[Rfam]
RNA: Small nucleolar RNA snR8
RNA sequence: UUCUUCUUUAACGAGAAUGGUGCUCAUUCACUUUACCGCCCCUUGACUAUGGGCGAGUGGAGGGGAAAGAGCAUCUAGAUUGAUGCUAUCGAUUUACGUCUCAUACUAAACUGUCUAUCUUAUGGCACGUUUGGAUUCUGCGUUGUCGACACAAAC
Numbered sequence: 001u002u003c004u005u006c007u008u009u010a011a012c013g014a015g016a017a018u019g020g021u022g023c024u025c026a027u028u029c030a031c032u033u034u035a036c037c038g039c040c041c042c043u044u045g046a047c048u049a050u051g052g053g054c055g056a057g058u059g060g061a062g063g064g065g066a067a068a069g070a071g072c073a074u075c076u077a078g079a080u081u082g083a084u085g086c087u088a089u090c091g092a093u094u095u096a097c098g099u100c101u102c103a104u105a106c107u108a109a110a111c112u113g114u115c116u117a118u119c120u121u122a123u124g125g126c127a128c129g130u131u132u133g134g135a136u137u138c139u140g141c142g143u144u145g146u147c148g149a150c151a152c153a154a155a156c
Base pairs, nucleotide, nucleotide: 019075020074022072023071031062032061034059035058037055038054039053040052041051089149090148091147092146096143097142098141106134107133108132110130111129112127113126114125115124117123